Background: Shown here is a 317-nucleotide sequence from Rhodinocichla rosea, a member of the family "7SK RNA". Taxonomically the source falls in Rhodinocichla (Eukaryota, Sarcopterygii, Archelosauria, Telluraves). 7SK was discovered as an abundant small nuclear RNA in the mid-70s but a possible function has only recently been suggested. Two independent studies have found that 7SK RNA binds the CDK9/cyclin T complex (known as elongation factor P-TEFb). P-TEFb activates transcription by phosphorylating the C-terminal domain of RNA polymerase II. This process is negatively regulated by the 7SK RNP. The secondary structure of 7SK RNA shown here was proposed by Wasserman and Steitz on the basis of chemical modification and enzymatic cleavage experiments. This family contains a number of annotated pseudogenes and 7SK derived repeats. The threshold is artificially high to minimise the pseudogene count.
RNA sequence: AGGUAUUAAGGCCACCUGGCUGUGACAUCUGUCACCCCACUGCUCCCCAGGGUUGAUUAAGCUGAUCUGGCUGGCAAUGUGGGUGUCCCAACACUCCAUCUGUGUCCCCUCCUGAAGCUGCACACUCUGUCACAGAGGAUGACAUCCCCACUAGAGAUGGUACCAUUCAUCAGACAAGGGUAUAAGGCAGCUGCGCUCCCCUGCCAAAGCCUCCAAACCAGCUCAAGGUCCAUUUGUAGGAGAACAUGGGGUAGUCAAGCUUCCAAGACUGCAGACACAUCCAAGUGAGGAGAUCCAUGGGGCAGUUUUCCUGUUUU
Numbered sequence: 001a002g003g004u005a006u007u008a009a010g011g012c013c014a015c016c017u018g019g020c021u022g023u024g025a026c027a028u029c030u031g032u033c034a035c036c037c038c039a040c041u042g043c044u045c046c047c048c049a050g051g052g053u054u055g056a057u058u059a060a061g062c063u064g065a066u067c068u069g070g071c072u073g074g075c076a077a078u079g080u081g082g083g084u085g086u087c088c089c090a091a092c093a094c095u096c097c098a099u100c101u102g103u104g105u106c107c108c109c110u111c112c113u114g115a116a117g118c119u120g121c122a123c124a125c126u127c128u129g130u131c132a133c134a135g136a137g138g139a140u141g142a143c144a145u146c147c148c149c150a151c152u153a154g155a156g157a158u159g160g161u162a163c164c165a166u167u168c169a170u171c172a173g174a175c176a177a178g179g180g181u182a183u184a185a186g187g188c189a190g191c192u193g194c195g196c197u198c199c200c201c202u203g204c205c206a207a208a209g210c211c212u213c214c215a216a217a218c219c220a221g222c223u224c225a226a227g228g229u230c231c232a233u234u235u236g237u238a239g240g241a242g243a244a245c246a247u248g249g250g251g252u253a254g255u256c257a258a259g260c261u262u263c264c265a266a267g268a269c270u271g272c273a274g275a276c277a278c279a280u281c282c283a284a285g286u287g288a289g290g291a292g293a294u295c296c297a298u299g300g301g302g303c304a305g306u307u308u309u310c311c312u313g314u315u316u317u
Stems, first nucleotide, its partner, number of pairs: 001101003010097002019089001024087009035074002037070003042067001044065002047061001106160002109156003112129001114127002117125001137147003190260003196254002199251005211242004217237002220234002284317002288312004292306001294304001296302001
The match comes from Rfam's covariance-model search (182 bits).